[Rfam]
RNA sequence: AUCUACCCACGUACAUUCCGGUUCCUCCACGCCGGCCGCACCCACCUGACGGCCGCUCGCUACGUUUUGUUAGCC
Numbered sequence: 001a002u003c004u005a006c007c008c009a010c011g012u013a014c015a016u017u018c019c020g021g022u023u024c025c026u027c028c029a030c031g032c033c034g035g036c037c038g039c040a041c042c043c044a045c046c047u048g049a050c051g052g053c054c055g056c057u058c059g060c061u062a063c064g065u066u067u068u069g070u071u072a073g074c075c
Stems, first nucleotide, its partner, number of pairs: 002015001004013003019034004046073007
RNA: Xanthomonas sRNA sX9
Organism: Xanthomonas campestris